[Rfam]
RNA sequence: GUCAAUAACCCGCGCCCGAGGUAAACCUCGGACGGGGCUUGCAAAAGAAUAAAUUGUUUUAUUUCCACUUUUGUUUAGCUCCGUUACAGUUUACGGAAGGUGUUGGCCGAAAGGCCUUAUUGAUUAGCCUUAGCAGUACUGCUACGUUACCGAUAAAAUAGGCACCGUGGGAUACUCCUCAAGUCUCACGCUCUGCGGUAUGCUGUUAAACAUCUCUUACGGUAGGAGAAGUGCAGUAUACGCUAAACUAUCGGAUAACAUUGGCGAUGAGGACAA
Numbered sequence: 001g002u003c004a005a006u007a008a009c010c011c012g013c014g015c016c017c018g019a020g021g022u023a024a025a026c027c028u029c030g031g032a033c034g035g036g037g038c039u040u041g042c043a044a045a046a047g048a049a050u051a052a053a054u055u056g057u058u059u060u061a062u063u064u065c066c067a068c069u070u071u072u073g074u075u076u077a078g079c080u081c082c083g084u085u086a087c088a089g090u091u092u093a094c095g096g097a098a099g100g101u102g103u104u105g106g107c108c109g110a111a112a113g114g115c116c117u118u119a120u121u122g123a124u125u126a127g128c129c130u131u132a133g134c135a136g137u138a139c140u141g142c143u144a145c146g147u148u149a150c151c152g153a154u155a156a157a158a159u160a161g162g163c164a165c166c167g168u169g170g171g172a173u174a175c176u177c178c179u180c181a182a183g184u185c186u187c188a189c190g191c192u193c194u195g196c197g198g199u200a201u202g203c204u205g206u207u208a209a210a211c212a213u214c215u216c217u218u219a220c221g222g223u224a225g226g227a228g229a230a231g232u233g234c235a236g237u238a239u240a241c242g243c244u245a246a247a248c249u250a251u252c253g254g255a256u257a258a259c260a261u262u263g264g265c266g267a268u269g270a271g272g273a274c275a276a
Stems, first nucleotide, its partner, number of pairs: 001124008010037002013034002018029004038047003127265003132143004146259004151253005162196002166190008176273006198241009210232002213229007
This 276-nucleotide sequence belongs to the Rfam family "HNH endonuclease-associated RNA and ORF (HEARO) RNA". For this family Rfam cites "Exceptional structured noncoding RNAs revealed by bacterial metagenome analysis" (Weinberg et al., Nature, 2009). By type it is a non-coding RNA gene.